[Rfam]
RNA sequence: ACCGCAGACCGCCUUAUCGCCGUUUCAUCAGAAAGGGAGGAAAGUCCGGACACCAUAGGGAAGCAUAGCGGAUAACAUCCGCCGGUCAGCAAUGAUCAGGACAAGUGCAACAGAAAGUAUGUACAGGUUAAGCUGUAGUGAAACCAGGUAAACUCUAUGCGGUGAAAUAUCAAGUAUAUCGGCAUUUAAGGGCUUCCCGCUCGUUGCCGAAGGGUAGAUAGAUGGAGCCGGUGAGCAAUUACCGGCCUAGAUAAAUGAUAAGGAUUUCAAUUUAUUGAGAUACAGAAUCCGGCUUACAGGUCUGCUUUUUUU
Number, nucleotide and partner (000 for none) at each position: 001a308002c000003c000004g305005c304006a303007g302008a301009c300010c299011g297012c263013c262014u261015u260016a259017u258018c257019g000020c037021c036022g000023u034024u033025u032026c031027a000028u000029c000030a000031g026032a025033a024034a023035g000036g021037g020038a000039g000040g000041a000042a295043a294044g293045u000046c292047c291048g290049g289050a288051c164052a163053c162054c161055a000056u000057a000058g198059g197060g196061a195062a000063g160064c159065a158066u157067a156068g082069c081070g080071g079072a078073u000074a000075a000076c000077a000078u072079c071080c070081g069082c068083c099084g097085g096086u095087c094088a000089g000090c000091a000092a000093u000094g087095a086096u085097c084098a000099g083100g155101a154102c000103a000104a000105g153106u152107g149108c148109a000110a000111c000112a000113g000114a000115a000116a000117g000118u000119a000120u000121g000122u137123a000124c135125a134126g133127g000128u000129u000130a000131a000132g000133c126134u125135g124136u000137a122138g000139u000140g000141a000142a000143a000144c000145c000146a000147g000148g108149u107150a000151a000152a106153c105154u101155c100156u067157a066158u065159g064160c063161g054162g053163u052164g051165a000166a000167a000168u220169a219170u218171c217172a000173a000174g000175u000176a000177u000178a000179u210180c209181g208182g207183c206184a000185u000186u000187u000188a000189a000190g202191g201192g200193c199194u000195u061196c060197c059198c058199g193200c192201u191202c190203g000204u000205u000206g183207c182208c181209g180210a179211a000212g000213g000214g000215u000216a000217g171218a170219u169220a168221g000222a000223u000224g000225g000226a000227g246228c245229c244230g243231g242232u241233g240234a239235g000236c000237a000238a000239u234240u233241a232242c231243c230244g229245g228246c227247c000248u000249a000250g000251a000252u000253a000254a000255a000256u000257g018258a017259u016260a015261a014262g013263g012264a000265u000266u000267u000268c000269a000270a000271u000272u000273u000274a000275u000276u000277g000278a000279g000280a000281u000282a000283c000284a000285g000286a000287a000288u050289c049290c048291g047292g046293c044294u043295u042296a000297c011298a000299g010300g009301u008302c007303u006304g005305c004306u000307u000308u001309u000310u000311u000312u000

The record is a 312-nucleotide RNA sequence from Flavobacterium noncentrifugens, which matches "Bacterial RNase P class A" in Rfam. The match comes from Rfam's covariance-model search (205 bits). The family's consensus secondary structure is taken from published work. Rfam classes the family as a ribozyme. The source organism's lineage runs through Bacteria, Bacteroidota, Flavobacteriales, Flavobacteriaceae and Flavobacterium. Ribonuclease P (RNase P) is a ubiquitous endoribonuclease, found in archaea, bacteria and eukarya as well as chloroplasts and mitochondria.